[Rfam]
RNA sequence: GGCGUUGAUAUGUCUGGUAUUCUUGGGUUGGGUCUUCGUCAACCAGUAUCUCAGACGUAUCAUCGUUGU
Numbered sequence: 001g002g003c004g005u006u007g008a009u010a011u012g013u014c015u016g017g018u019a020u021u022c023u024u025g026g027g028u029u030g031g032g033u034c035u036u037c038g039u040c041a042a043c044c045a046g047u048a049u050c051u052c053a054g055a056c057g058u059a060u061c062a063u064c065g066u067u068g069u
Base pairs, nucleotide, nucleotide: 006062007061008060009059010058011057012056013055014054015053016052017051019049020048026044027043028042
The family of this 69-nucleotide sequence from Ascaris suum is "mir-50 microRNA precursor family". The base pairs follow the family's consensus structure, which was predicted with RNAalifold. The family has 7 seed sequences and 65 matches in Rfam 15.1. A reference for the family is Lau et al. (2001), "An abundant class of tiny RNAs with probable regulatory roles in Caenorhabditis elegans", Science. Its family is annotated with RISC complex and miRNA-mediated post-transcriptional gene silencing in the Gene Ontology. Taxonomically the source falls in Ascaris (Eukaryota, Bilateria, Ecdysozoa, Ascaridomorpha). It is one of the family's seed sequences. The family is grouped with related families in Rfam's "mir-50 clan".